[Rfam]
RNA sequence: AAUUCUGUUCGUACGAACAAAGAGAAGCAGAUCUAUUCUAUACCCCGAUCAGUACCAAUCGCCAUUGGAG
Dot-bracket structure: ..((.(((((....))))).)).....................((......(.(....))......))..
This 70-nucleotide sequence from Musa balbisiana belongs to the Rfam family "Plastid-clpP 5UTR RNA". It scores 66 bits against the family's covariance model. From the family's description: Plastid clpP is a non-coding RNA (ncRNA) recognised in plastids. The family has 343 seed sequences and 2,105 matches in Rfam 15.1. NCBI's taxonomy places the organism under Eukaryota, Embryophyta, Tracheophyta, Zingiberales, Musa.